This 287-nucleotide RNA from Physeter macrocephalus belongs to the Rfam family "HIF-1 alpha IRES". The source organism's lineage runs through Eukaryota, Opisthokonta, Chordata, Odontoceti and Physeter. Rfam's curators write: This family represents the hypoxia-inducible factor 1-alpha internal ribosome entry site. Rfam classes the family as an internal ribosome entry site. The family's consensus secondary structure was predicted with RNAfold. Gene Ontology term of the family: ribosome binding.
RNA sequence: CUCGUCUGAGGGGACGCGAGGAUCGCCCUCGCUGUCGCUUUCGCCAGUGCGUUGGGCCGGGCCCUGACAAGCUGCCCCAGGGGAGGCUCUUCGGAGCCGGACCUGGACCCCUGCGAUAGCCGUCUGCUCUCCCGCCUCCGGUCUCACGAGGGGUUUCCCGCCUCGCACCCCCCACCUCUGGACGUGCCUUUCCUCCCCUCCCCGCGUGUGGAGGGAGCCAGCGCUUAGGCCGGAGCGAGCCUGGGGGCCACGGGCAGUGAAGGCAUCGCGGGGACCGAUUCGCCAUG
Numbered sequence: 001c002u003c004g005u006c007u008g009a010g011g012g013g014a015c016g017c018g019a020g021g022a023u024c025g026c027c028c029u030c031g032c033u034g035u036c037g038c039u040u041u042c043g044c045c046a047g048u049g050c051g052u053u054g055g056g057c058c059g060g061g062c063c064c065u066g067a068c069a070a071g072c073u074g075c076c077c078c079a080g081g082g083g084a085g086g087c088u089c090u091u092c093g094g095a096g097c098c099g100g101a102c103c104u105g106g107a108c109c110c111c112u113g114c115g116a117u118a119g120c121c122g123u124c125u126g127c128u129c130u131c132c133c134g135c136c137u138c139c140g141g142u143c144u145c146a147c148g149a150g151g152g153g154u155u156u157c158c159c160g161c162c163u164c165g166c167a168c169c170c171c172c173c174a175c176c177u178c179u180g181g182a183c184g185u186g187c188c189u190u191u192c193c194u195c196c197c198c199u200c201c202c203c204g205c206g207u208g209u210g211g212a213g214g215g216a217g218c219c220a221g222c223g224c225u226u227a228g229g230c231c232g233g234a235g236c237g238a239g240c241c242u243g244g245g246g247g248c249c250a251c252g253g254g255c256a257g258u259g260a261a262g263g264c265a266u267c268g269c270g271g272g273g274a275c276c277g278a279u280u281c282g283c284c285a286u287g
Stems, first nucleotide, its partner, number of pairs: 001013003016032006034062003083156003087153001129152003133148001185220002188217004198211002231254001235251001237249001